[Rfam]
RNA sequence: GUAUCCGAUGGGUGGGACACCCACCCGAAUUCCGGUUGCUGCGGUUACGCUGACGGCGUGCGCCUUCUUCCGGAGGGCGCAAAGCCGACAGCCGUCGCAACCCCGGGAGCACAUCCAUG
Numbered sequence: 001g002u003a004u005c006c007g008a009u010g011g012g013u014g015g016g017a018c019a020c021c022c023a024c025c026c027g028a029a030u031u032c033c034g035g036u037u038g039c040u041g042c043g044g045u046u047a048c049g050c051u052g053a054c055g056g057c058g059u060g061c062g063c064c065u066u067c068u069u070c071c072g073g074a075g076g077g078c079g080c081a082a083a084g085c086c087g088a089c090a091g092c093c094g095u096c097g098c099a100a101c102c103c104c105g106g107g108a109g110c111a112c113a114u115c116c117a118u119g
Base pairs, nucleotide, nucleotide: 059081060080061079062078064076065075066074067073084098085097087096088095089094